[Rfam]
RNA sequence: ACGUUUCAGUUUUGCUUUAGAAUUCCUACGCUUUACCGUGACUUUAAUACUGGCAAAGCGUUUGGAUUCUGAAACGAAACAAAC
Number, nucleotide and partner (000 for none) at each position: 001a000002c000003g000004u000005u000006u000007c000008a000009g000010u078011u077012u076013u000014g075015c000016u073017u072018u071019a070020g069021a068022a000023u066024u065025c064026c000027u000028a061029c060030g059031c058032u057033u056034u055035a000036c053037c052038g000039u000040g000041a000042c000043u000044u000045u000046a000047a000048u000049a000050c000051u000052g037053g036054c000055a034056a033057a032058g031059c030060g029061u028062u000063u000064g025065g024066a023067u000068u021069c020070u019071g018072a017073a016074a000075c014076g012077a011078a010079a000080c000081a000082a000083a000084c000
RNA: mir-927 microRNA precursor family
Organism: Pseudolycoriella hygida